RNA sequence: CGUUGCUAGGCAGUGUAGUUAGCUGAUUGGUAACCGUUAACUAGCAAUCACUAACCACACAGCCAGGCAAAG
Numbered sequence: 001c002g003u004u005g006c007u008a009g010g011c012a013g014u015g016u017a018g019u020u021a022g023c024u025g026a027u028u029g030g031u032a033a034c035c036g037u038u039a040a041c042u043a044g045c046a047a048u049c050a051c052u053a054a055c056c057a058c059a060c061a062g063c064c065a066g067g068c069a070a071a072g
Stems, first nucleotide, its partner, number of pairs: 003070004009064002013060004018055005024050006031043001